[Rfam]
RNA sequence: GUCAAUAACUCACCGUCAAAUCCUUUGGAUUAUGACGGGAGCUUGUAAGAAGCUUAUAGUUGACCAGUCUAAGUUCCUGAGAACUAUGUUAUUUCUAAGUGUUAAUGUUCCUACCUAGGGAUGCGUAGCCAGUCCCUAGCUCUAGAACCCAAUCGUUAAACAGGUGUAAUUGAGUUAAGCCAGUGCGACUGGGAAAGUACCGAGAAAUAACCUUGACGUUCGCGAAGCGUGUGCGAA
Numbered sequence: 001g002u003c004a005a006u007a008a009c010u011c012a013c014c015g016u017c018a019a020a021u022c023c024u025u026u027g028g029a030u031u032a033u034g035a036c037g038g039g040a041g042c043u044u045g046u047a048a049g050a051a052g053c054u055u056a057u058a059g060u061u062g063a064c065c066a067g068u069c070u071a072a073g074u075u076c077c078u079g080a081g082a083a084c085u086a087u088g089u090u091a092u093u094u095c096u097a098a099g100u101g102u103u104a105a106u107g108u109u110c111c112u113a114c115c116u117a118g119g120g121a122u123g124c125g126u127a128g129c130c131a132g133u134c135c136c137u138a139g140c141u142c143u144a145g146a147a148c149c150c151a152a153u154c155g156u157u158a159a160a161c162a163g164g165u166g167u168a169a170u171u172g173a174g175u176u177a178a179g180c181c182a183g184u185g186c187g188a189c190u191g192g193g194a195a196a197g198u199a200c201c202g203a204g205a206a207a208u209a210a211c212c213u214u215g216a217c218g219u220u221c222g223c224g225a226a227g228c229g230u231g232u233g234c235g236a237a
Stems, first nucleotide, its partner, number of pairs: 001064006008057001010040002013037001017034002041053004067217003071213001072085005088211009109146002115139008126236001128234002148193004153188004160184002163181003167177003
A member of the RNA family "HNH endonuclease-associated RNA and ORF (HEARO) RNA" from Moorena producens, 237 nucleotides long.
Lineage of the source: Bacteria > Bacillati > Cyanophyceae > Coleofasciculales > Moorena producens.
Pairs were carried over by alignment from the consensus structure, which is taken from published work.
Rfam classes the family as a non-coding RNA gene.
The family has 139 seed sequences and 952 matches in Rfam 15.1.